RNA sequence: GCCUGAGGGGCUCACAGCUCUGGUCCUUGGAGCUCCAGAGAAAAUGUUGCUCCGGGGCUGAGUUCUGUGCACCCCCCUUGCCC
Number, nucleotide and partner (000 for none) at each position: 001g081002c080003c000004u000005g077006a000007g075008g074009g073010g072011c000012u000013c069014a068015c067016a066017g065018c000019u000020c062021u060022g059023g058024u057025c056026c055027u054028u000029g053030g052031a051032g050033c049034u000035c000036c046037a045038g000039a000040g000041a000042a000043a000044a000045u037046g036047u000048u000049g033050c032051u031052c030053c029054g027055g026056g025057g024058c023059u022060g021061a000062g020063u000064u000065c017066u016067g015068u014069g013070c000071a000072c010073c009074c008075c007076c000077c005078u000079u000080g002081c001082c000083c000
The record is an 83-nucleotide RNA sequence from Mus musculus, which matches "mir-673 microRNA precursor family" in Rfam.
Taxonomically the source falls in Mus (Eukaryota, Mammalia, Boreoeutheria, Muroidea).
It is one of the family's seed sequences.
Rfam 15.1 lists 8 matches to the family in 8 species.